Rfam assigns this 73-nucleotide sequence from Enterobacillus tribolii to the family "MicA sRNA". The family's RNA type in Rfam is small RNA. A search with the family's covariance model found it, with a score of 82 bits. The source organism's lineage runs through Bacteria, Pseudomonadati, Pseudomonadota, Gammaproteobacteria and Enterobacillus.

[Rfam]
RNA sequence: GAAAGACGCGCAUUUGUUAUCAUCAUCCCUGUUAAUAGAGAUGCAUAUUCGGCCACAGGUAUUGUGGCCUUUU
Numbered sequence: 001g002a003a004a005g006a007c008g009c010g011c012a013u014u015u016g017u018u019a020u021c022a023u024c025a026u027c028c029c030u031g032u033u034a035a036u037a038g039a040g041a042u043g044c045a046u047a048u049u050c051g052g053c054c055a056c057a058g059g060u061a062u063u064g065u066g067g068c069c070u071u072u073u
Stems, first nucleotide, its partner, number of pairs: 024043004029038003051069007